[Rfam]
RNA sequence: UACACUCACUACUGUAAGUCGCUCUAGAUAAGAGCAGCUGCUAAAUGACUAAAA
Numbered sequence: 001u002a003c004a005c006u007c008a009c010u011a012c013u014g015u016a017a018g019u020c021g022c023u024c025u026a027g028a029u030a031a032g033a034g035c036a037g038c039u040g041c042u043a044a045a046u047g048a049c050u051a052a053a054a
Stems, first nucleotide, its partner, number of pairs: 013043001014041003021035005
The family of this 54-nucleotide RNA sequence from Oncorhynchus mykiss is "UnaL2 LINE 3' element".
The base pairs follow the family's consensus structure, which is taken from published work.
The match comes from Rfam's covariance-model search (60 bits).
A reference for the family is Baba et al. (2004), "Solution structure of an RNA stem-loop derived from the 3' conserved region of eel LINE UnaL2", RNA.
The organism belongs to Oncorhynchus, within Eukaryota.
The eel long interspersed element (LINE) UnaL2 and its partner short interspersed element (SINE) share a conserved 3' tail containing a stem-loop that is critical for their retrotransposition.
Rfam classes the family as a cis-regulatory element.
The family has 30 seed sequences and 493,311 matches in Rfam 15.1.